[Rfam]
RNA: Bacterial small subunit ribosomal RNA, nucleotides 542 to 897
Organism: Ornithinimicrobium ciconiae
RNA sequence: GGCGUAAAGAGCUUGUAGGCGGUUUGUCGCGUCUGCUGUGAAAGCCCGGGGCUUAACUCCGGGUCUGCAGUGGGUACGGGCAGACUAGAGUAUGGUAGGGGAGACUGGAAUUCCUGGUGUAGCGGUGGAAUGCGCAGAUAUCAGGAGGAACACCGAUGGCGAAGGCAGGUCUCUGGGCCAUAACUGACGCUGAGAAGCGAAAGCAUGGGUAGCGAACAGGAUUAGAUACCCUGGUAGUCCAUGCCGUAAACGUUGGGCGCUAGGUGUGGGGCUCAUUCCACGAGUUCCGUGCCGCAGCUAACGCAUUAAGCGCCCCGCCUGGGGAGUACGGCCGCAAGGCUAAAACUCAAAGGAAU
Numbered sequence: 001g002g003c004g005u006a007a008a009g010a011g012c013u014u015g016u017a018g019g020c021g022g023u024u025u026g027u028c029g030c031g032u033c034u035g036c037u038g039u040g041a042a043a044g045c046c047c048g049g050g051g052c053u054u055a056a057c058u059c060c061g062g063g064u065c066u067g068c069a070g071u072g073g074g075u076a077c078g079g080g081c082a083g084a085c086u087a088g089a090g091u092a093u094g095g096u097a098g099g100g101g102a103g104a105c106u107g108g109a110a111u112u113c114c115u116g117g118u119g120u121a122g123c124g125g126u127g128g129a130a131u132g133c134g135c136a137g138a139u140a141u142c143a144g145g146a147g148g149a150a151c152a153c154c155g156a157u158g159g160c161g162a163a164g165g166c167a168g169g170u171c172u173c174u175g176g177g178c179c180a181u182a183a184c185u186g187a188c189g190c191u192g193a194g195a196a197g198c199g200a201a202a203g204c205a206u207g208g209g210u211a212g213c214g215a216a217c218a219g220g221a222u223u224a225g226a227u228a229c230c231c232u233g234g235u236a237g238u239c240c241a242u243g244c245c246g247u248a249a250a251c252g253u254u255g256g257g258c259g260c261u262a263g264g265u266g267u268g269g270g271g272c273u274c275a276u277u278c279c280a281c282g283a284g285u286u287c288c289g290u291g292c293c294g295c296a297g298c299u300a301a302c303g304c305a306u307u308a309a310g311c312g313c314c315c316c317g318c319c320u321g322g323g324g325a326g327u328a329c330g331g332c333c334g335c336a337a338g339g340c341u342a343a344a345a346c347u348c349a350a351a352g353g354a355a356u
Stems, first nucleotide, its partner, number of pairs: 001319003009316001011198004016192001018191003022085007030078002032074009045063007089185003092181005100174007107151001111147008122133003159166002203244006212238002217233004255315006263293012297304002321348003330341004